[Rfam]
RNA sequence: AUGAUUAUACGGGGAGAGAACGUGAGGACACGUCGCCGAAGGAGCAAGUAGCAUAGCUAUGAAUCUCUCAGGCAAAAAGACUCGUAUAGGACG
Numbered sequence: 001a002u003g004a005u006u007a008u009a010c011g012g013g014g015a016g017a018g019a020a021c022g023u024g025a026g027g028a029c030a031c032g033u034c035g036c037c038g039a040a041g042g043a044g045c046a047a048g049u050a051g052c053a054u055a056g057c058u059a060u061g062a063a064u065c066u067c068u069c070a071g072g073c074a075a076a077a078a079g080a081c082u083c084g085u086a087u088a089g090g091a092c093g
Stems, first nucleotide, its partner, number of pairs: 006088008020033004035073003038069002042067003048060004
The record is a 93-nucleotide RNA from Ureibacillus massiliensis, which matches "Glycine riboswitch aptamer" in Rfam.